[Rfam]
RNA sequence: UGGAUAGAUUAUUAUAUUCACGGCGUGAAACAGGGGAUUACACUAUUUUUGAACGGAAAGUGAAUCAAUUAACAUAAUCGACUCCU
Numbered sequence: 001u002g003g004a005u006a007g008a009u010u011a012u013u014a015u016a017u018u019c020a021c022g023g024c025g026u027g028a029a030a031c032a033g034g035g036g037a038u039u040a041c042a043c044u045a046u047u048u049u050u051g052a053a054c055g056g057a058a059a060g061u062g063a064a065u066c067a068a069u070u071a072a073c074a075u076a077a078u079c080g081a082c083u084c085c086u
Stems, first nucleotide, its partner, number of pairs: 001080003005076002009072002011069001013067001016065006024055003027049004032044002
RNA: MIR6152 microRNA precursor family
Organism: Nicotiana tabacum